The record is an 86-nucleotide sequence from Aquarana catesbeiana, which matches "Selenocysteine transfer RNA" in Rfam.
Clan: tRNA clan.
A search with the family's covariance model found it, with a score of 55 bits.
[Rfam]
RNA sequence: GCCCAGAGGACCCUCAGUGGUCUGGGGUGCAGGCUUCAAACCUGUAGCUGCUUAGCGGCAGAGUGAUUCAGUUCCCCCUUCUGGAU
Numbered sequence: 001g002c003c004c005a006g007a008g009g010a011c012c013c014u015c016a017g018u019g020g021u022c023u024g025g026g027g028u029g030c031a032g033g034c035u036u037c038a039a040a041c042c043u044g045u046a047g048c049u050g051c052u053u054a055g056c057g058g059c060a061g062a063g064u065g066a067u068u069c070a071g072u073u074c075c076c077c078c079u080u081c082u083g084g085a086u
Stems, first nucleotide, its partner, number of pairs: 001086001003084007012027006028046006048061005063077001065075001